Nuclear RNase P: a 287-nucleotide sequence from Eleutherodactylus coqui. The base pairs follow the family's consensus structure, which is taken from published work. Rfam describes the family as follows. Ribonuclease P (RNase P) is a ubiquitous endoribonuclease, found in archaea, bacteria and eukarya as well as chloroplasts and mitochondria. Rfam classes the family as a ribozyme.

[Rfam]
RNA sequence: UUAGAGAGAAUCUCAGUGCUGAGGCUCCAAUCAGAGUACUGUAGCUACCCUUGGGGAAUGUCUGAGUUGAGAGCUACAUGUUGCUUUCACAAAGCAAGUGAGUUCCCAUCAACCUUGGUCUGCUUGCAACUUGAAAGAACAAGAAGUAGUUAGCACUCAGAAUGCAGUACUACUACAGAUUCAAAGUUGUCAAGUUUGGAAUUGGCUCACAGUUUGCCAGUUGAGCUCAAUGACUGAAAGGAGAGUGCAGACUUUCCCAACUCAAUUCAGACUACUCUAUCUCCAAA
Numbered sequence: 001u002u003a004g005a006g007a008g009a010a011u012c013u014c015a016g017u018g019c020u021g022a023g024g025c026u027c028c029a030a031u032c033a034g035a036g037u038a039c040u041g042u043a044g045c046u047a048c049c050c051u052u053g054g055g056g057a058a059u060g061u062c063u064g065a066g067u068u069g070a071g072a073g074c075u076a077c078a079u080g081u082u083g084c085u086u087u088c089a090c091a092a093a094g095c096a097a098g099u100g101a102g103u104u105c106c107c108a109u110c111a112a113c114c115u116u117g118g119u120c121u122g123c124u125u126g127c128a129a130c131u132u133g134a135a136a137g138a139a140c141a142a143g144a145a146g147u148a149g150u151u152a153g154c155a156c157u158c159a160g161a162a163u164g165c166a167g168u169a170c171u172a173c174u175a176c177a178g179a180u181u182c183a184a185a186g187u188u189g190u191c192a193a194g195u196u197u198g199g200a201a202u203u204g205g206c207u208c209a210c211a212g213u214u215u216g217c218c219a220g221u222u223g224a225g226c227u228c229a230a231u232g233a234c235u236g237a238a239a240g241g242a243g244a245g246u247g248c249a250g251a252c253u254u255u256c257c258c259a260a261c262u263c264a265a266u267u268c269a270g271a272c273u274a275c276u277c278u279a280u281c282u283c284c285a286a287a
Stems, first nucleotide, its partner, number of pairs: 001287002004284001007280001009278001013237005020053005036048003039044001062270005072214004082096005098210007120194002240257006